[Rfam]
RNA sequence: UGGCGCCCAACGUGGGACUGGAUACUGGGGGACAACGUGAGGGUCCGCCGACAAAGGAAGAAGGGGUGCACACCUGAUCAAACAAAAGUUCGGAGACGUCGUGGUAGCCUGCUGUGACCGAGCCGACAGGUAAGUUGGUCGUUCAAUCAUGGGGCAAGAAUUGAGUCAGCAUCAGAAAUAUGUAAUACAGUUAAAGGAAGUUUUACAGGCAAGAGGAGUAAAGGUUACGACUGAGGAUUUAUUUCAUUUCUUUGAUUUUGUGAAAGACAUCUGCCCAU
Numbered sequence: 001u002g003g004c005g006c007c008c009a010a011c012g013u014g015g016g017a018c019u020g021g022a023u024a025c026u027g028g029g030g031g032a033c034a035a036c037g038u039g040a041g042g043g044u045c046c047g048c049c050g051a052c053a054a055a056g057g058a059a060g061a062a063g064g065g066g067u068g069c070a071c072a073c074c075u076g077a078u079c080a081a082a083c084a085a086a087a088g089u090u091c092g093g094a095g096a097c098g099u100c101g102u103g104g105u106a107g108c109c110u111g112c113u114g115u116g117a118c119c120g121a122g123c124c125g126a127c128a129g130g131u132a133a134g135u136u137g138g139u140c141g142u143u144c145a146a147u148c149a150u151g152g153g154g155c156a157a158g159a160a161u162u163g164a165g166u167c168a169g170c171a172u173c174a175g176a177a178a179u180a181u182g183u184a185a186u187a188c189a190g191u192u193a194a195a196g197g198a199a200g201u202u203u204u205a206c207a208g209g210c211a212a213g214a215g216g217a218g219u220a221a222a223g224g225u226u227a228c229g230a231c232u233g234a235g236g237a238u239u240u241a242u243u244u245c246a247u248u249u250c251u252u253u254g255a256u257u258u259u260g261u262g263a264a265a266g267a268c269a270u271c272u273g274c275c276c277a278u
Base pairs, nucleotide, nucleotide: 006030007029008028012025013024014023036047037046087131089129097120098119100116101115102114103113104112140154142153143152144151145150162205163204164203165201166200213253214252215251216250217249218248222240223239224238225237226236263278266275268273

Rfam assigns this 278-nucleotide sequence from Nannospalax galili to the family "Mason-Pfizer monkey virus packaging signal".
Rfam's curators write: This family represents a group of sequences that are related to the Mason-Pfizer monkey virus (MPMV) packaging signal.
It scores 145 bits against the family's covariance model.
The family's RNA type in Rfam is cis-regulatory element.